[Rfam]
RNA sequence: UACCUCUUUAAUCUAGUCCUGAGAGACUAAAAAGAGGUUUACACUCCUUAUAAACUAAGGUGAUGUACUCCUCUUUGCUUAAGCAGAGAGGUUUUUUUAUA
Number, nucleotide and partner (000 for none) at each position: 001u000002a000003c037004c036005u035006c034007u033008u032009u031010a000011a000012u000013c000014u029015a028016g027017u026018c025019c000020u000021g000022a000023g000024a000025g018026a017027c016028u015029a014030a000031a009032a008033a007034g006035a005036g004037g003038u000039u000040u000041a000042c000043a000044c062045u000046c060047c059048u058049u057050a056051u000052a000053a000054a000055c000056u050057a049058a048059g047060g046061u000062g044063a000064u000065g096066u000067a094068c000069u000070c091071c090072u089073c088074u087075u086076u085077g084078c083079u000080u000081a000082a000083g078084c077085a076086g075087a074088g073089a072090g071091g070092u000093u000094u067095u000096u065097u000098u000099a000100u000101a000
RNA: PyrR binding site